[Rfam]
RNA sequence: AGCCUGCUGUCUUGUAUGGCUUUUUAUUCCUAUGUGAUUAUACAUCCCCCUUCAUAUAGGGAUUGAAGCCGUGCAAUACGCCGGGGU
Numbered sequence: 001a002g003c004c005u006g007c008u009g010u011c012u013u014g015u016a017u018g019g020c021u022u023u024u025u026a027u028u029c030c031u032a033u034g035u036g037a038u039u040a041u042a043c044a045u046c047c048c049c050c051u052u053c054a055u056a057u058a059g060g061g062a063u064u065g066a067a068g069c070c071g072u073g074c075a076a077u078a079c080g081c082c083g084g085g086g087u
Base pairs, nucleotide, nucleotide: 003085004084005083006082008080009079010078012076013075014074015073016072017071018070019069020068021067022066023065026063027062028061029060030059031058032057033056034055035054036053037052